The family of this 163-nucleotide sequence from Carnegiea gigantea is "U12 minor spliceosomal RNA".

RNA sequence: GCGCCUUAAACUAAUGAGUAAGGAAAACAAAGCGGGCAGUGAGAACUGACCGCAGCGCCGACUGAAAAGAAUUUUGGUGCGCAAGAAUUUGUGGAGGGGGAAUAGGCUGGCCAAGUGUUGACGCUGCUUACUUUUGCAGAACUCGCUGGUGCUGGCCUCCCAC
Numbered sequence: 001g002c003g004c005c006u007u008a009a010a011c012u013a014a015u016g017a018g019u020a021a022g023g024a025a026a027a028c029a030a031a032g033c034g035g036g037c038a039g040u041g042a043g044a045a046c047u048g049a050c051c052g053c054a055g056c057g058c059c060g061a062c063u064g065a066a067a068a069g070a071a072u073u074u075u076g077g078u079g080c081g082c083a084a085g086a087a088u089u090u091g092u093g094g095a096g097g098g099g100g101a102a103u104a105g106g107c108u109g110g111c112c113a114a115g116u117g118u119u120g121a122c123g124c125u126g127c128u129u130a131c132u133u134u135u136g137c138a139g140a141a142c143u144c145g146c147u148g149g150u151g152c153u154g155g156c157c158u159c160c161c162a163c
Base pairs, nucleotide, nucleotide: 004023005022006021007020008019032053033052034051035050037048038047039046055082056081057080058079097163099161100160104158105157106156107155108154109153110152112149115146116145117144124139125138126137127136
NCBI's taxonomy places the organism under Eukaryota, Spermatophyta, Pentapetalae, Cactineae, Carnegiea.
The match comes from Rfam's covariance-model search (88 bits).
The family's RNA type in Rfam is spliceosomal small nuclear RNA.